[Rfam]
RNA sequence: GGUGGACGGUGUGCGUGGUGUCUGUCCGUGUUUGGUGCCACAAUCCGUCUGUGUCUUACAGCCCGGACAGUGGUGCUCACGCCACACCCACAGCCACAGAGACACUGGAUAUCAUAGUACUGGUCCAGUGAUGUCUUACAGACAGCCCACCACUGACCAGCCUCCAUACUCUCCUACAAGC
Numbered sequence: 001g002g003u004g005g006a007c008g009g010u011g012u013g014c015g016u017g018g019u020g021u022c023u024g025u026c027c028g029u030g031u032u033u034g035g036u037g038c039c040a041c042a043a044u045c046c047g048u049c050u051g052u053g054u055c056u057u058a059c060a061g062c063c064c065g066g067a068c069a070g071u072g073g074u075g076c077u078c079a080c081g082c083c084a085c086a087c088c089c090a091c092a093g094c095c096a097c098a099g100a101g102a103c104a105c106u107g108g109a110u111a112u113c114a115u116a117g118u119a120c121u122g123g124u125c126c127a128g129u130g131a132u133g134u135c136u137u138a139c140a141g142a143c144a145g146c147c148c149a150c151c152a153c154u155g156a157c158c159a160g161c162c163u164c165c166a167u168a169c170u171c172u173c174c175u176a177c178a179a180g181c
Stems, first nucleotide, its partner, number of pairs: 013091001029084001030082002033079003036075006044067004050060003107174003111170001120160006127154004132144004
Background
Small nucleolar RNA SNORA23: a 181-nucleotide RNA sequence from Albula glossodonta. A search with the family's covariance model found it, with a score of 115 bits. Rfam links the family to the GO terms RNA processing and nucleolus. Pairs were carried over by alignment from the consensus structure, which was predicted with RNAalifold. By type it is an H/ACA-box small nucleolar RNA. A reference for the family is Huttenhofer et al. (2001), "RNomics: an experimental approach that identifies 201 candidates for novel, small, non-messenger RNAs in mouse", EMBO J. The members of this family belong to the H/ACA class of snoRNAs which are thought to guide the sites of modification of uridines to pseudouridines. This family includes human snoRNA ACA23 (SNORA23) and mouse snoMBI-1. ACA23 is predicted to guide the pseudouridylation of residue U3737 and U4331 of 28S rRNA.